[Rfam]
Group II catalytic intron D1-D4-3: a 173-nucleotide RNA from Aureibacillus halotolerans.

RNA sequence: UCCAUCGCGAGGUGGAAUCUGAAGGAAGUCGGCGGCAAACCUCCGGUCUGAGGAAUACGAACCUCAUAUAAGGCUAGCAUUCGUUGGAUGAGCUUGCCGAACAAAGUGAAAUCCUUACUGCCGAAGGCGAAUGUGAGUAAAUGAGGCAGAUGGAUGGAGGGAAAGAUAGCGCU
Numbered sequence: 001u002c003c004a005u006c007g008c009g010a011g012g013u014g015g016a017a018u019c020u021g022a023a024g025g026a027a028g029u030c031g032g033c034g035g036c037a038a039a040c041c042u043c044c045g046g047u048c049u050g051a052g053g054a055a056u057a058c059g060a061a062c063c064u065c066a067u068a069u070a071a072g073g074c075u076a077g078c079a080u081u082c083g084u085u086g087g088a089u090g091a092g093c094u095u096g097c098c099g100a101a102c103a104a105a106g107u108g109a110a111a112u113c114c115u116u117a118c119u120g121c122c123g124a125a126g127g128c129g130a131a132u133g134u135g136a137g138u139a140a141a142u143g144a145g146g147c148a149g150a151u152g153g154a155u156g157g158a159g160g161g162a163a164a165g166a167u168a169g170c171g172c173u
Stems, first nucleotide, its partner, number of pairs: 001016006028173001030171002036165001040160006046151005062146006073138003077134007086114004092107004